[Rfam]
RNA: TPP riboswitch aptamer (THI element)
RNA sequence: UGUUCUGACACGGGGUGCGUCCUACCUGAGGAUGCUGAGAUCACACCCGUCGAACCUGAUGCAGUUAAUGCUGACGAAGGGAUGUCAAGGCGAUGGUUA
Numbered sequence: 001u002g003u004u005c006u007g008a009c010a011c012g013g014g015g016u017g018c019g020u021c022c023u024a025c026c027u028g029a030g031g032a033u034g035c036u037g038a039g040a041u042c043a044c045a046c047c048c049g050u051c052g053a054a055c056c057u058g059a060u061g062c063a064g065u066u067a068a069u070g071c072u073g074a075c076g077a078a079g080g081g082a083u084g085u086c087a088a089g090g091c092g093a094u095g096g097u098u099a
Stems, first nucleotide, its partner, number of pairs: 006087005011049004016043001017035007055080003062073003